[Rfam]
RNA sequence: GUGACAGAAGAGAGUGAGCACACAUGGCACUUUCUUGCACGAUGACGAUUCAUGCUUGAAGUUAUGCGUGCUCACUCUCUAUCUGUCAC
Numbered sequence: 001g002u003g004a005c006a007g008a009a010g011a012g013a014g015u016g017a018g019c020a021c022a023c024a025u026g027g028c029a030c031u032u033u034c035u036u037g038c039a040c041g042a043u044g045a046c047g048a049u050u051c052a053u054g055c056u057u058g059a060a061g062u063u064a065u066g067c068g069u070g071c072u073c074a075c076u077c078u079c080u081a082u083c084u085g086u087c088a089c
Stems, first nucleotide, its partner, number of pairs: 001089008010079012023066003